A member of the RNA family "Flavo-1 RNA" from Pedobacter sp. Leaf194, 70 nucleotides long. A search with the family's covariance model found it, with a score of 50 bits.

RNA sequence: UUAUAAACCUGAUUGCAGUGGAAACCAAAAGCUUUUUCUGCUUUUGUUGCAACGGAAAGCAGGAACAAAC
Numbered sequence: 001u002u003a004u005a006a007a008c009c010u011g012a013u014u015g016c017a018g019u020g021g022a023a024a025c026c027a028a029a030a031g032c033u034u035u036u037u038c039u040g041c042u043u044u045u046g047u048u049g050c051a052a053c054g055g056a057a058a059g060c061a062g063g064a065a066c067a068a069a070c
Stems, first nucleotide, its partner, number of pairs: 009062003013058002018053002023048003027045006